[Rfam]
This 346-nucleotide RNA sequence from Blautia sp. OF03-15BH belongs to the Rfam family "Bacterial RNase P class A". Rfam classes the family as a ribozyme. Pairs were carried over by alignment from the consensus structure, which is taken from published work. Ribonuclease P (RNase P) is a ubiquitous endoribonuclease, found in archaea, bacteria and eukarya as well as chloroplasts and mitochondria. The match comes from Rfam's covariance-model search (312 bits). The organism belongs to Blautia, within Bacteria.
RNA sequence: CGAGUAAAACAGGUGGUCGCGGCUGACAGACCGAAAGGUGUCAGGCGAGGAAAGUCCGGGCUUCACAGGGCAGGAUGCCGGAUAACAUCCGGUGGAGGCGACUCCAAGGACAGUGCAACAGAAAUAAACCGCCCGCUUUGGCGGGUAAGGGUGGAAAGGCAGUGUAAGAGACUACCGCCCGGCUGGUAACAGACGGGGCAUAUGUAAACCCCAUUCGAAGCAAGACCGAAUAGAGACAUACGGCGGCCCGUCGGUCUCAGGUAGGUCGCUUGAACCUGCUGGUAACAGCAGGUCUAGAUAGAUGACCAUCCAAUGACAUAACCCGGCUUAUCGUUUUGCUCGUUUU
Numbered sequence: 001c002g003a004g005u006a007a008a009a010c011a012g013g014u015g016g017u018c019g020c021g022g023c024u025g026a027c028a029g030a031c032c033g034a035a036a037g038g039u040g041u042c043a044g045g046c047g048a049g050g051a052a053a054g055u056c057c058g059g060g061c062u063u064c065a066c067a068g069g070g071c072a073g074g075a076u077g078c079c080g081g082a083u084a085a086c087a088u089c090c091g092g093u094g095g096a097g098g099c100g101a102c103u104c105c106a107a108g109g110a111c112a113g114u115g116c117a118a119c120a121g122a123a124a125u126a127a128a129c130c131g132c133c134c135g136c137u138u139u140g141g142c143g144g145g146u147a148a149g150g151g152u153g154g155a156a157a158g159g160c161a162g163u164g165u166a167a168g169a170g171a172c173u174a175c176c177g178c179c180c181g182g183c184u185g186g187u188a189a190c191a192g193a194c195g196g197g198g199c200a201u202a203u204g205u206a207a208a209c210c211c212c213a214u215u216c217g218a219a220g221c222a223a224g225a226c227c228g229a230a231u232a233g234a235g236a237c238a239u240a241c242g243g244c245g246g247c248c249c250g251u252c253g254g255u256c257u258c259a260g261g262u263a264g265g266u267c268g269c270u271u272g273a274a275c276c277u278g279c280u281g282g283u284a285a286c287a288g289c290a291g292g293u294c295u296a297g298a299u300a301g302a303u304g305a306c307c308a309u310c311c312a313a314u315g316a317c318a319u320a321a322c323c324c325g326g327c328u329u330a331u332c333g334u335u336u337u338g339c340u341c342g343u344u345u346u
Stems, first nucleotide, its partner, number of pairs: 001342010011331001012310007020047002023044006052329003056326005061220004068249004073216005078092005093107001094105004108211002113209002115205003129150002131146006158176002161173003177199001178197004183192003224267004233258005242252003274293008